The record is a 62-nucleotide RNA from Cladophialophora psammophila, which matches "bZIP non canonical Hac1/Xbp1 intron" in Rfam. It scores 41 bits against the family's covariance model. Rfam describes the family as follows. bZIP intron RNA is a non-canonical intron that was first reported in HAC1 gene in yeast and XBP1 gene in Metazoa.
[Rfam]
RNA sequence: GUCUCCGGUUUGGCACAAUAUCCUGCUGUGGUAUUGUGUGACCUGCAGUGUCAGCCGGAGAC
Numbered sequence: 001g002u003c004u005c006c007g008g009u010u011u012g013g014c015a016c017a018a019u020a021u022c023c024u025g026c027u028g029u030g031g032u033a034u035u036g037u038g039u040g041a042c043c044u045g046c047a048g049u050g051u052c053a054g055c056c057g058g059a060g061a062c
Base pairs, nucleotide, nucleotide: 001062002061003060004059006057007056008055009054010053017035018034019033020032021031022030040052041051042050